RNA: ribosomal frameshift site
RNA sequence: AUUGGCCCCUGGGGAAAGAAGCCCCGCAAUUUCCCCGUGGCCCAA
Numbered sequence: 001a002u003u004g005g006c007c008c009c010u011g012g013g014g015a016a017a018g019a020a021g022c023c024c025c026g027c028a029a030u031u032u033c034c035c036c037g038u039g040g041c042c043c044a045a
Stems, first nucleotide, its partner, number of pairs: 002044001004042002008039001010037007018030001021027002